Notes
Shown here is a 66-nucleotide RNA from Naja naja, a member of the family "Selenocysteine insertion sequence 1". A search with the family's covariance model found it, with a score of 38 bits. The source organism's lineage runs through Eukaryota, Opisthokonta, Deuterostomia, Euteleostomi and Naja. Rfam describes the family as follows. The incorporation of selenocysteine into a protein sequence is directed by an in-frame UGA codon (usually a stop codon) within the coding region of the mRNA. Selenoprotein mRNAs contain a conserved secondary structure in the 3' UTR that is required for the distinction of UGA stop from UGA selenocysteine. The selenocysteine insertion sequence (SECIS) is around 60 nt in length and adopts a hairpin structure which is sufficiently well-defined and conserved to act as a computational screen for selenoprotein genes. On this family, see Walczak et al., RNA 1996: "A novel RNA structural motif in the selenocysteine insertion element of eukaryotic selenoprotein mRNAs". The family's RNA type in Rfam is cis-regulatory element.
[Rfam]
RNA sequence: GGCAGAUCAUGACGGGAUCACCCGAAAGGAGGAAGGCGCCUGGAUGAUUCCUGAUGUCUCUCUGCU
Numbered sequence: 001g002g003c004a005g006a007u008c009a010u011g012a013c014g015g016g017a018u019c020a021c022c023c024g025a026a027a028g029g030a031g032g033a034a035g036g037c038g039c040c041u042g043g044a045u046g047a048u049u050c051c052u053g054a055u056g057u058c059u060c061u062c063u064g065c066u
Stems, first nucleotide, its partner, number of pairs: 001066005014051007022043002029039001031037001